[Rfam]
RNA sequence: CGCUUGCGGCCUGGAACUUCGACUCAACCUCCGUGUGAACUUUUUUUCUUAACACAAGUUCGAGGUGAGCAAAGUUUCAGGUGUGCAAGCGU
Numbered sequence: 001c002g003c004u005u006g007c008g009g010c011c012u013g014g015a016a017c018u019u020c021g022a023c024u025c026a027a028c029c030u031c032c033g034u035g036u037g038a039a040c041u042u043u044u045u046u047u048c049u050u051a052a053c054a055c056a057a058g059u060u061c062g063a064g065g066u067g068a069g070c071a072a073a074g075u076u077u078c079a080g081g082u083g084u085g086c087a088a089g090c091g092u
Stems, first nucleotide, its partner, number of pairs: 002090006009082006016075004023069004028065003
RNA: mir-87 microRNA precursor family